[Rfam]
RT-4 RNA: a 118-nucleotide RNA. The family's RNA type in Rfam is small RNA. Pairs were carried over by alignment from the consensus structure, which is taken from published work.
RNA sequence: UACACCGCUGACGGUUGAGACACCGUUAUAUCCGCAAUUAUUUGUUUGGUGAGUGAAAAUUAACUCGAUACAGGACGAGUAGUAAAGCGGUCGCACCUGCUAUUCGUAGGGGAUAGAA
Numbered sequence: 001u002a003c004a005c006c007g008c009u010g011a012c013g014g015u016u017g018a019g020a021c022a023c024c025g026u027u028a029u030a031u032c033c034g035c036a037a038u039u040a041u042u043u044g045u046u047u048g049g050u051g052a053g054u055g056a057a058a059a060u061u062a063a064c065u066c067g068a069u070a071c072a073g074g075a076c077g078a079g080u081a082g083u084a085a086a087g088c089g090g091u092c093g094c095a096c097c098u099g100c101u102a103u104u105c106g107u108a109g110g111g112g113a114u115a116g117a118a
Stems, first nucleotide, its partner, number of pairs: 003055003010027006032049002035044003064111003075107010087094002